The family of this 102-nucleotide RNA from Canis lupus is "mir-8834 microRNA precursor family".
[Rfam]
RNA sequence: AGGAACAACCCCAGUGGUGGCAGCCAGCUCUGGAGCCCUGGAGUCAGCUCCCGCAGUACUACAGAGCUCUCUGUCUGCAGGGCCUGGUGGCUCCGGGGCGGG
Numbered sequence: 001a002g003g004a005a006c007a008a009c010c011c012c013a014g015u016g017g018u019g020g021c022a023g024c025c026a027g028c029u030c031u032g033g034a035g036c037c038c039u040g041g042a043g044u045c046a047g048c049u050c051c052c053g054c055a056g057u058a059c060u061a062c063a064g065a066g067c068u069c070u071c072u073g074u075c076u077g078c079a080g081g082g083c084c085u086g087g088u089g090g091c092u093c094c095g096g097g098g099c100g101g102g
Base pairs, nucleotide, nucleotide: 001092002091006086007085009082010081011080016075017074018073019072020071022070023069026068027067028066029065030064031063032062034060038056039055040054
A search with the family's covariance model found it, with a score of 57 bits. The base pairs follow the family's consensus structure, which was predicted with RNAalifold. Lineage of the source: Eukaryota > Sarcopterygii > Theria > Eutheria > Canis lupus.